[Rfam]
RNA sequence: AAUCCCUUUGAAGAUCUUGCAGAUAUUAAAGUAGUGGACUGAUUCUUAUUUGAUGAGAAAGCUUGUUCUGAGGGAUU
Dot-bracket structure: ((((((.................................................................))))))
RNA: Small nucleolar RNA R21
Organism: Erythranthe guttata